Rfam assigns this 95-nucleotide RNA from Shimwellia blattae to the family "sraA".
RNA sequence: AGGUAAAUCAGUAUAUGGGGAUGUUUCCCGUACAUUCAAUGUCAGGAAUACAGGAAAAAUAAAUGGGGGAUAAAAUCCCCCAUUUUUGGAUAACU
Numbered sequence: 001a002g003g004u005a006a007a008u009c010a011g012u013a014u015a016u017g018g019g020g021a022u023g024u025u026u027c028c029c030g031u032a033c034a035u036u037c038a039a040u041g042u043c044a045g046g047a048a049u050a051c052a053g054g055a056a057a058a059a060u061a062a063a064u065g066g067g068g069g070a071u072a073a074a075a076u077c078c079c080c081c082a083u084u085u086u087u088g089g090a091u092a093a094c095u
Stems, first nucleotide, its partner, number of pairs: 008038001010036003016032002019029002061085011
Dot-bracket structure: .......(.(((...((.((.......)).)).))).)......................(((((((((((...)))))))))))..........

Record summary:
On this family, see Argaman et al., Curr Biol 2001: "Novel small RNA-encoding genes in the intergenic regions of Escherichia coli". A search with the family's covariance model found it, with a score of 96 bits. It is annotated as a small RNA.